[Rfam]
RNA sequence: AUCACCCGCGUGGGAGAGACCGCUGUAACGGCGGCGCCGAAGGGGCAACUCCUCCCCGGAACCUCUCAGGCAGAAGGACCACGCGGGCAGG
Numbered sequence: 001a002u003c004a005c006c007c008g009c010g011u012g013g014g015a016g017a018g019a020c021c022g023c024u025g026u027a028a029c030g031g032c033g034g035c036g037c038c039g040a041a042g043g044g045g046c047a048a049c050u051c052c053u054c055c056c057c058g059g060a061a062c063c064u065c066u067c068a069g070g071c072a073g074a075a076g077g078a079c080c081a082c083g084c085g086g087g088c089a090g091g
Base pairs, nucleotide, nucleotide: 006086007085008084009083010082011081012080013079020034021033022032023031036071037070038069039067040066043065044064045063049059050058
A member of the RNA family "Glycine riboswitch aptamer" from Virgisporangium aurantiacum, 91 nucleotides long.
The organism belongs to Virgisporangium, within Bacteria.
The pairing is the family consensus, mapped onto this sequence.